[Rfam]
RNA sequence: GGCUGGUCCGAAGGUAGUCAGUUAUCUCACUUGAUUGUUCAAGUCAGUUACAGAUUGAACUCCUUUUUCUACUUCCCUUCUCACUACUGCAACUUGACUAGUCUUUC
Number, nucleotide and partner (000 for none) at each position: 001g103002g102003c101004u100005g099006g098007u097008c096009c000010g095011a094012a000013g000014g090015u089016a085017g084018u083019c000020a081021g080022u000023u000024a000025u000026c000027u000028c000029a000030c000031u000032u000033g000034a000035u000036u000037g000038u000039u000040c000041a000042a000043g000044u000045c000046a000047g069048u000049u000050a000051c000052a000053g000054a000055u000056u000057g000058a000059a000060c000061u000062c000063c000064u000065u000066u000067u000068u000069c047070u000071a000072c000073u000074u000075c000076c000077c000078u000079u000080c021081u020082c000083a018084c017085u016086a000087c000088u000089g015090c014091a000092a000093c000094u011095u010096g008097a007098c006099u005100a004101g003102u002103c001104u000105u000106u000107c000
Annotation: A member of the RNA family "Y RNA" from Prolemur simus, 107 nucleotides long. A reference for the family is Van Horn et al. (1995), "Caenorhabditis elegans embryos contain only one major species of Ro RNP", RNA. The base pairs follow the family's consensus structure, which is taken from published work. The source organism's lineage runs through Eukaryota, Dipnotetrapodomorpha, Tetrapoda, Lemuridae and Prolemur.